[Rfam]
RNA sequence: GCCGGUCCUCGGUAGUGGCCUCCGGACGCUCGUGCGCGAGCCCGCCGGGGGCUUCGAUCGAUGGCCGGC
Numbered sequence: 001g002c003c004g005g006u007c008c009u010c011g012g013u014a015g016u017g018g019c020c021u022c023c024g025g026a027c028g029c030u031c032g033u034g035c036g037c038g039a040g041c042c043c044g045c046c047g048g049g050g051g052c053u054u055c056g057a058u059c060g061a062u063g064g065c066c067g068g069c
Stems, first nucleotide, its partner, number of pairs: 001069007009061005017053009028041005
Rfam assigns this 69-nucleotide sequence from Nakamurella leprariae to the family "Actino-pnp RNA".
It is annotated as a cis-regulatory element.
Lineage of the source: Bacteria > Actinomycetes > Nakamurellales > Nakamurellaceae > Nakamurella.